[Rfam]
RNA sequence: GGGUGCCGGGCCGCAGGAGCCGUCAGGCAGGUAUCACGCGAAGGUCGGGCCGCCUCG
Number, nucleotide and partner (000 for none) at each position: 001g000002g000003g000004u000005g028006c027007c026008g000009g024010g023011c000012c022013g000014c000015a000016g000017g000018a000019g000020c000021c000022g012023u010024c009025a000026g007027g006028c005029a000030g000031g000032u000033a000034u000035c000036a000037c000038g000039c057040g056041a055042a000043g054044g053045u052046c000047g000048g000049g000050c000051c000052g045053c044054c043055u041056c040057g039